The family of this 132-nucleotide sequence from bacterium 1XD8-76 is "Ribosomal protein L10 leader". Gene Ontology term of the family: regulation of gene expression. The family's RNA type in Rfam is cis-regulatory leader. On this family, see Zengel and Lindahl, Prog Nucleic Acid Res Mol Biol 1994: "Diverse mechanisms for regulating ribosomal protein synthesis in Escherichia coli". It scores 65 bits against the family's covariance model. The family's consensus secondary structure was predicted with CMfinder.
RNA sequence: AAAGGUCGCAAGACCAUGCCGAAGACAGCAGGUGCCGGAGAACCGGCGUAAGGACAGACGCCUGCCGAGGAAAAGUGAUAGUGGAUAGAACUUUUGCCUUCCUGUCUUUGGGAAGGCUUUUAUUAUUUACAG
Numbered sequence: 001a002a003a004g005g006u007c008g009c010a011a012g013a014c015c016a017u018g019c020c021g022a023a024g025a026c027a028g029c030a031g032g033u034g035c036c037g038g039a040g041a042a043c044c045g046g047c048g049u050a051a052g053g054a055c056a057g058a059c060g061c062c063u064g065c066c067g068a069g070g071a072a073a074a075g076u077g078a079u080a081g082u083g084g085a086u087a088g089a090a091c092u093u094u095u096g097c098c099u100u101c102c103u104g105u106c107u108u109u110g111g112g113a114a115g116g117c118u119u120u121u122a123u124u125a126u127u128u129a130c131a132g
Base pairs, nucleotide, nucleotide: 028065029064030063031062032061033060034047035046036045096117097116098115099114100113101112102111103110104109